[Rfam]
RNA sequence: CCGAAUGGUGGCUAGGGUUCCGGUCCCUGAUGCAGGAGAUGUCUGGUCCGAGAGCUGCCGCCCGAUCCCGCCUGGAUGACAGGCCCGGUCGGGUACACGGCGGGACAAAAGCCCGGGAGAU
Numbered sequence: 001c002c003g004a005a006u007g008g009u010g011g012c013u014a015g016g017g018u019u020c021c022g023g024u025c026c027c028u029g030a031u032g033c034a035g036g037a038g039a040u041g042u043c044u045g046g047u048c049c050g051a052g053a054g055c056u057g058c059c060g061c062c063c064g065a066u067c068c069c070g071c072c073u074g075g076a077u078g079a080c081a082g083g084c085c086c087g088g089u090c091g092g093g094u095a096c097a098c099g100g101c102g103g104g105a106c107a108a109a110a111g112c113c114c115g116g117g118a119g120a121u
Stems, first nucleotide, its partner, number of pairs: 007059006015049002020046002022043001023040003027036002060094008096116001098119001102114003